[Rfam]
RNA: mir-363 microRNA precursor family
RNA sequence: GCUGUUUUCGGGUGGAUGACUCUGCAAUUUUAAUAAUGUCCAAAGUCUAAAAUGAAAAAUUGCACGGUAUCCAUCUGUAAUCCGCC
Numbered sequence: 001g002c003u004g005u006u007u008u009c010g011g012g013u014g015g016a017u018g019a020c021u022c023u024g025c026a027a028u029u030u031u032a033a034u035a036a037u038g039u040c041c042a043a044a045g046u047c048u049a050a051a052a053u054g055a056a057a058a059a060u061u062g063c064a065c066g067g068u069a070u071c072c073a074u075c076u077g078u079a080a081u082c083c084g085c086c
Base pairs, nucleotide, nucleotide: 009077010076011075012074013073014072015071016070017069019068020067023064024063025062026061027060028059029058030057031056